RNA sequence: CAAAUUUAUAGGCAAAAUGAAUGAAAAUUCAUGACGCAAAGCUAUAGGGCCUUUAAACUGGCUGCCAGCUGCAAAA
Numbered sequence: 001c002a003a004a005u006u007u008a009u010a011g012g013c014a015a016a017a018u019g020a021a022u023g024a025a026a027a028u029u030c031a032u033g034a035c036g037c038a039a040a041g042c043u044a045u046a047g048g049g050c051c052u053u054u055a056a057a058c059u060g061g062c063u064g065c066c067a068g069c070u071g072c073a074a075a076a
Stems, first nucleotide, its partner, number of pairs: 012037002017032006040070004047066002049062003
Shown here is a 76-nucleotide RNA sequence from Kandleria vitulina, a member of the family "c-di-GMP-I riboswitch aptamer". Rfam links the family to the GO term cyclic-di-GMP binding. NCBI's taxonomy places the organism under Bacteria, Bacillota, Coprobacillaceae, Kandleria, Kandleria vitulina.